[Rfam]
RNA sequence: CCGGAGGACUAAGAAAGUGGAGUCGGUGCCUUCAUGCCCACCCCGCUGAUACUAUCCUCCAAAAGGAAAUGGUGGAAGAACAAGGCCUGCCCGCGAGGUAAGGGCAGGGCCUGCUUCCUCCGCCUACAGGG
Numbered sequence: 001c002c003g004g005a006g007g008a009c010u011a012a013g014a015a016a017g018u019g020g021a022g023u024c025g026g027u028g029c030c031u032u033c034a035u036g037c038c039c040a041c042c043c044c045g046c047u048g049a050u051a052c053u054a055u056c057c058u059c060c061a062a063a064a065g066g067a068a069a070u071g072g073u074g075g076a077a078g079a080a081c082a083a084g085g086c087c088u089g090c091c092c093g094c095g096a097g098g099u100a101a102g103g104g105c106a107g108g109g110c111c112u113g114c115u116u117c118c119u120c121c122g123c124c125u126a127c128a129g130g131g
Stems, first nucleotide, its partner, number of pairs: 003060006010051002018045003022041002026035003071124006078117001083112003086108004
A member of the RNA family "Small Cajal body specific RNA 15", 131 nucleotides long. Rfam 15.1 lists 635 matches to the family in 528 species. Gene Ontology terms of the family: RNA processing, Cajal body and nucleolus. The literature on the family includes a 2002 paper in EMBO J by Darzacq et al., "Cajal body-specific small nuclear RNAs: a novel class of 2'-O-methylation and pseudouridylation guide RNAs". It is annotated as a small Cajal body RNA. Rfam's curators write: scaRNAs are a specific class of small nuclear RNAs which localise to the Cajal bodies and guide the modification of RNA polymerase II transcribed spliceosomal RNAs U1, U2, U4, U5 and U12. ACA45 belongs to the H/ACA box class of guide RNAs as it has the predicted hairpin-hinge-hairpin-tail structure, the conserved H/ACA-box motifs and is found associated with GAR1. ACA45 is predicted to guide the pseudouridylation of residue U37 of the U2 spliceosomal snRNA.